[Rfam]
RNA sequence: UAUCCCCUGCGGUGUUCGUGACGGCAAACAAUUCCUUUGUACCAAUGCGUUCGCUUCUGGUUGCCAGCGUGAGUCACGGGUGUGUCGGGUCCCUUGCGGACGCGCCCGAAGUGGCUGGCAGGUGACCCUCCCUGGAAACAGGGUACAAGCGAAUUAUGCCCAAACGACACUCGCGGGGGUCUC
Number, nucleotide and partner (000 for none) at each position: 001u000002a000003u000004c179005c178006c177007c176008u175009g174010c173011g172012g170013u169014g168015u167016u000017c166018g165019u164020g000021a000022c000023g000024g000025c000026a000027a000028a000029c000030a000031a000032u000033u152034c151035c000036u149037u000038u147039g146040u145041a144042c143043c142044a000045a000046u000047g000048c000049g000050u000051u000052c000053g000054c000055u000056u000057c000058u000059g127060g126061u125062u000063g123064c122065c121066a000067g119068c118069g000070u117071g000072a116073g115074u114075c113076a112077c111078g000079g000080g000081u000082g000083u000084g105085u104086c000087g000088g000089g101090u100091c099092c098093c000094u000095u000096g000097c000098g092099g091100a090101c089102g000103c000104g085105c084106c000107c000108g000109a000110a000111g077112u076113g075114g074115c073116u072117g070118g068119c067120a000121g065122g064123u063124g000125a061126c060127c059128c000129u000130c000131c000132c000133u000134g000135g000136a000137a000138a000139c000140a000141g000142g043143g042144u041145a040146c039147a038148a000149g036150c000151g034152a033153a000154u000155u000156a000157u000158g000159c000160c000161c000162a000163a000164a019165c018166g017167a015168c014169a013170c012171u000172c011173g010174c009175g008176g007177g006178g005179g004180u000181c000182u000183c000
A member of the RNA family "6S / SsrS RNA" from Aquitalea sp. FJL05, 183 nucleotides long. It scores 51 bits against the family's covariance model. Taxonomically the source falls in Aquitalea (Bacteria, Pseudomonadota, Betaproteobacteria, Neisseriales). A reference for the family is Wassarman and Storz (2000), "6S RNA regulates E. coli RNA polymerase activity", Cell. Pairs were carried over by alignment from the consensus structure, which is taken from published work.